The family of this 138-nucleotide RNA from Eucalyptus grandis is "MIR397 microRNA precursor family". The family has 7 seed sequences and 496 matches in Rfam 15.1. A reference for the family is Mica et al. (2009), "High throughput approaches reveal splicing of primary microRNA transcripts and tissue specific expression of mature microRNAs in Vitis vinifera", BMC Genomics. It scores 58 bits against the family's covariance model.

RNA sequence: CAUAGAAACAUUUUUGAGUGCAGCGUUGGUGAAACGAUCCCAUUCCAUUAUUCCCCCAGACUCAGAUGGGGAAAAGAAGAGGAAGGGCCAUAGAAAUGGGAAGUGAUUUCAUCAACGCUGCACUCAAUAACGUUUCUG
Number, nucleotide and partner (000 for none) at each position: 001c000002a000003u000004a000005g000006a135007a134008a133009c132010a000011u130012u000013u000014u127015u126016g125017a124018g123019u122020g121021c120022a119023g118024c117025g116026u115027u114028g113029g000030u111031g110032a109033a108034a107035c000036g000037a000038u000039c000040c000041c000042a000043u000044u000045c000046c000047a000048u000049u000050a000051u000052u000053c000054c000055c000056c000057c000058a000059g000060a000061c000062u000063c000064a000065g000066a000067u000068g000069g000070g000071g000072a000073a000074a000075a000076g000077a000078a000079g000080a000081g000082g000083a000084a000085g000086g000087g000088c000089c000090a000091u000092a000093g000094a000095a000096a000097u000098g000099g000100g000101a000102a000103g000104u000105g000106a000107u034108u033109u032110c031111a030112u000113c028114a027115a026116c025117g024118c023119u022120g021121c020122a019123c018124u017125c016126a015127a014128u000129a000130a011131c000132g009133u008134u007135u006136c000137u000138g000